[Rfam]
RNA sequence: AGAAAAGCGUUGAUGGGAACGAGUACUCAAAAGUCAUGUCUUAAGAGAGUUUCUGGGUGGUGUGAAGAAACAGACAGCUUCUGACGAAUACAUCUCUGAGCUAAGCACCCAACGGUUUAAAACCAAGUAGGCUGCUUCGGGAAACUGCACCCGUUACAGUGCUAGGGUAUGAAUGUACCCGAUAAGUUUUUCUGCGGUGACGCAGAAGAUAAAUCAAGGUGGUACCAUGGAGCAUCAGUCUUCAUCCUUUUU
Numbered sequence: 001a002g003a004a005a006a007g008c009g010u011u012g013a014u015g016g017g018a019a020c021g022a023g024u025a026c027u028c029a030a031a032a033g034u035c036a037u038g039u040c041u042u043a044a045g046a047g048a049g050u051u052u053c054u055g056g057g058u059g060g061u062g063u064g065a066a067g068a069a070a071c072a073g074a075c076a077g078c079u080u081c082u083g084a085c086g087a088a089u090a091c092a093u094c095u096c097u098g099a100g101c102u103a104a105g106c107a108c109c110c111a112a113c114g115g116u117u118u119a120a121a122a123c124c125a126a127g128u129a130g131g132c133u134g135c136u137u138c139g140g141g142a143a144a145c146u147g148c149a150c151c152c153g154u155u156a157c158a159g160u161g162c163u164a165g166g167g168u169a170u171g172a173a174u175g176u177a178c179c180c181g182a183u184a185a186g187u188u189u190u191u192c193u194g195c196g197g198u199g200a201c202g203c204a205g206a207a208g209a210u211a212a213a214u215c216a217a218g219g220u221g222g223u224a225c226c227a228u229g230g231a232g233c234a235u236c237a238g239u240c241u242u243c244a245u246c247c248u249u250u251u252u
Base pairs, nucleotide, nucleotide: 007101008100015096016095017094018093027084028083029082031080039074040073041072049071050070051069052068053067054066104136105135106134107133109131110130138153139152140151191209192208193207195205216249217248218247219246227245228244229243230242231241
RNA: T-box leader
Organism: Proteiniclasticum aestuarii